[Rfam]
RNA sequence: CUGCACGUUGCCUCCCGGGCUUCUCUGAAGUUCAUCUAGUGACGGUGAAUGCCCCAAUGCACGUGCUAAAGCUCCGCCGUUUAGUGUUGCAGUUUAGCCUUUUUCUCCUUUCUCCGGCUGAUCUGUGUCAAAUCAACGGCUACAUCU
Numbered sequence: 001c002u003g004c005a006c007g008u009u010g011c012c013u014c015c016c017g018g019g020c021u022u023c024u025c026u027g028a029a030g031u032u033c034a035u036c037u038a039g040u041g042a043c044g045g046u047g048a049a050u051g052c053c054c055c056a057a058u059g060c061a062c063g064u065g066c067u068a069a070a071g072c073u074c075c076g077c078c079g080u081u082u083a084g085u086g087u088u089g090c091a092g093u094u095u096a097g098c099c100u101u102u103u104u105c106u107c108c109u110u111u112c113u114c115c116g117g118c119u120g121a122u123c124u125g126u127g128u129c130a131a132a133u134c135a136a137c138g139g140c141u142a143c144a145u146c147u
Base pairs, nucleotide, nucleotide: 003066004065005064006063007062008061010060011059017054018053019052020051022048023047024045025044076140077139078138079137080136081135085130086129088127089126090125091124092123097118098117099116
Shown here is a 147-nucleotide RNA sequence from Manihot esculenta, a member of the family "small nucleolar RNA snoR134". Rfam classes the family as an H/ACA-box small nucleolar RNA. Gene Ontology terms of the family: RNA processing and nucleolus. Pairs were carried over by alignment from the consensus structure, which was predicted with RNAalifold. The match comes from Rfam's covariance-model search (126 bits). Rfam 15.1 lists 792 matches to the family in 228 species.